Shown here is an 85-nucleotide RNA from Acer yangbiense, a member of the family "Small nucleolar RNA SNORD25". On this family, see Tycowski et al., Nature 1996: "A mammalian gene with introns instead of exons generating stable RNA products". The family has 12 seed sequences and 985 matches in Rfam 15.1. The organism belongs to Acer, within Eukaryota. Its family is annotated with RNA processing and nucleolus in the Gene Ontology.
RNA sequence: AACAAUGAUGAUGAGUCUAUAGACCUAUAAUGAUUUGCAGAUAUAAUCGCAAAUCAUUUUGAACAUCUAAGGGACUGAGUUUGUU
Numbered sequence: 001a002a003c004a005a006u007g008a009u010g011a012u013g014a015g016u017c018u019a020u021a022g023a024c025c026u027a028u029a030a031u032g033a034u035u036u037g038c039a040g041a042u043a044u045a046a047u048c049g050c051a052a053a054u055c056a057u058u059u060u061g062a063a064c065a066u067c068u069a070a071g072g073g074a075c076u077g078a079g080u081u082u083g084u085u
Stems, first nucleotide, its partner, number of pairs: 002084003005080002